[Rfam]
RNA sequence: ACGGUGUUCCGCUGUCAGGAUUGUUCCAGACAUGAGCAUUUG
Numbered sequence: 001a002c003g004g005u006g007u008u009c010c011g012c013u014g015u016c017a018g019g020a021u022u023g024u025u026c027c028a029g030a031c032a033u034g035a036g037c038a039u040u041u042g
Stems, first nucleotide, its partner, number of pairs: 003040007013032004018027001
RNA: Ribosomal protein L19 leader
Organism: Pontibacillus halophilus